[Rfam]
RNA sequence: CGGUCGGGAGCCCCCUUUUGGGCAGGGGGCAGGAAUAGACCGCGACCCUCUGUUUCGUCAGGGCACAUCUCCCGGCACCCAACGGGGCGUGUG
Dot-bracket structure: (((((....(((((((.......))))))).......))))).....................(((((.(((((........))))).)))))
The record is a 93-nucleotide RNA from Celeribacter indicus, which matches "Rhodo-rpoB RNA" in Rfam. The match comes from Rfam's covariance-model search (68 bits).